[Rfam]
Small nucleolar RNA SNORD53/SNORD92: a 78-nucleotide RNA sequence from Dromaius novaehollandiae. The pairing is the family consensus, mapped onto this sequence. Its family is annotated with RNA processing and nucleolus in the Gene Ontology. On this family, see Kiss-Laszlo et al., Cell 1996: "Site-specific ribose methylation of preribosomal RNA: a novel function for small nucleolar RNAs".

RNA sequence: UUGCUGUGAUGAUACCCACUUGGUUUUGCUUGCUAGUGGUCUGCAGUGUGGACAGUUUCCGCUUGGCUGUCUGAGCAG
Numbered sequence: 001u002u003g004c005u006g007u008g009a010u011g012a013u014a015c016c017c018a019c020u021u022g023g024u025u026u027u028g029c030u031u032g033c034u035a036g037u038g039g040u041c042u043g044c045a046g047u048g049u050g051g052a053c054a055g056u057u058u059c060c061g062c063u064u065g066g067c068u069g070u071c072u073g074a075g076c077a078g
Base pairs, nucleotide, nucleotide: 001078002077003076004075